nhaA-I RNA: a 61-nucleotide sequence from Sulfuritalea hydrogenivorans. Taxonomically the source falls in Sulfuritalea hydrogenivorans (Bacteria, Betaproteobacteria, Sterolibacteriaceae, Sulfuritalea). The family's RNA type in Rfam is riboswitch. From the family's description: Acidobacteria, Alphaproteobacteria, Betaproteobacteria and Gammaproteobacteria, Verrucomicrobia, cand. division NC10.

RNA sequence: GGGUGUCUGGACCUUUUUUGCUAGAGUUUGGACAGGUAUUUGUGUCGGUCGGGCCGCCGCA
Numbered sequence: 001g002g003g004u005g006u007c008u009g010g011a012c013c014u015u016u017u018u019u020g021c022u023a024g025a026g027u028u029u030g031g032a033c034a035g036g037u038a039u040u041u042g043u044g045u046c047g048g049u050c051g052g053g054c055c056g057c058c059g060c061a
Stems, first nucleotide, its partner, number of pairs: 005033008043061003047058003